Rfam assigns this 280-nucleotide sequence from Helicoverpa armigera to the family "Arthropod 7SK RNA". Taxonomically the source falls in Helicoverpa (Eukaryota, Ecdysozoa, Hexapoda, Heliothinae). It is annotated as a non-coding RNA gene.
RNA sequence: GGAAGUGUGUUCUUUAGUGUGAUGUUACAACUGUUUAUAGAUCACUAGCUCUCGUUAGAAGGUCUACAGCACGUGACGUCACGCGCUCGUUGCCAGGCAACGCCUCUUGUAAUGUGCGCUGCGGACGCUCGCCCGCGCGGCUGCGACGGACCAGUGGCGCACGUUCCUUGGGCUGCCUUCUGAACCUUACGCGGUUUUAGUUAACUCGUUAGCUUAGCUCCGGUUAAAUUGAGCACUUCCAUACCAUGGCGGCGAGAACACUCGAUUGCCAGUUUUUUGA
Numbered sequence: 001g002g003a004a005g006u007g008u009g010u011u012c013u014u015u016a017g018u019g020u021g022a023u024g025u026u027a028c029a030a031c032u033g034u035u036u037a038u039a040g041a042u043c044a045c046u047a048g049c050u051c052u053c054g055u056u057a058g059a060a061g062g063u064c065u066a067c068a069g070c071a072c073g074u075g076a077c078g079u080c081a082c083g084c085g086c087u088c089g090u091u092g093c094c095a096g097g098c099a100a101c102g103c104c105u106c107u108u109g110u111a112a113u114g115u116g117c118g119c120u121g122c123g124g125a126c127g128c129u130c131g132c133c134c135g136c137g138c139g140g141c142u143g144c145g146a147c148g149g150a151c152c153a154g155u156g157g158c159g160c161a162c163g164u165u166c167c168u169u170g171g172g173c174u175g176c177c178u179u180c181u182g183a184a185c186c187u188u189a190c191g192c193g194g195u196u197u198u199a200g201u202u203a204a205c206u207c208g209u210u211a212g213c214u215u216a217g218c219u220c221c222g223g224u225u226a227a228a229u230u231g232a233g234c235a236c237u238u239c240c241a242u243a244c245c246a247u248g249g250c251g252g253c254g255a256g257a258a259c260a261c262u263c264g265a266u267u268g269c270c271a272g273u274u275u276u277u278u279g280a
Stems, first nucleotide, its partner, number of pairs: 001240008019082005031069003037065001040064004045058003248270005